Shown here is a 113-nucleotide sequence from Anaerotignum neopropionicum, a member of the family "FMN riboswitch aptamer (RFN element)".
RNA sequence: AUAACUCUUCAGGGCAGGGUGAAAUUCCCGAUCGGCGGUAAAGUCCGCGAGCGUAAGCAGGAUUUGGUGAAAGUCCAAAACCGACAGUAUAGUCUGGAUGGAAGAAGAGCAAG
Numbered sequence: 001a002u003a004a005c006u007c008u009u010c011a012g013g014g015c016a017g018g019g020u021g022a023a024a025u026u027c028c029c030g031a032u033c034g035g036c037g038g039u040a041a042a043g044u045c046c047g048c049g050a051g052c053g054u055a056a057g058c059a060g061g062a063u064u065u066g067g068u069g070a071a072a073g074u075c076c077a078a079a080a081c082c083g084a085c086a087g088u089a090u091a092g093u094c095u096g097g098a099u100g101g102a103a104g105a106a107g108a109g110c111a112a113g
Base pairs, nucleotide, nucleotide: 005109006108007107008106009105010104017029018028019027031093032092033083034082035048036047037046038045043081044080063079064078065077066076067075085096086095087094